About this RNA: eL15-Euryarchaeota ribosomal protein leader: a 54-nucleotide RNA. Rfam classes the family as a cis-regulatory leader. On this family, see Eckert and Weinberg, BMC Microbiol 2020: "Discovery of 20 novel ribosomal leader candidates in bacteria and archaea".
RNA sequence: ACGGGAUGCGUCCCGUUGAAAGGAAUGUAGCUCAGCAAUGAGCCGAACCUUAGG
Number, nucleotide and partner (000 for none) at each position: 001a016002c015003g014004g013005g012006a000007u000008g000009c000010g000011u000012c005013c004014c003015g002016u001017u000018g000019a000020a000021a050022g049023g048024a000025a000026u000027g000028u000029a000030g043031c042032u041033c040034a039035g000036c000037a000038a000039u034040g033041a032042g031043c030044c000045g000046a000047a000048c023049c022050u021051u000052a000053g000054g000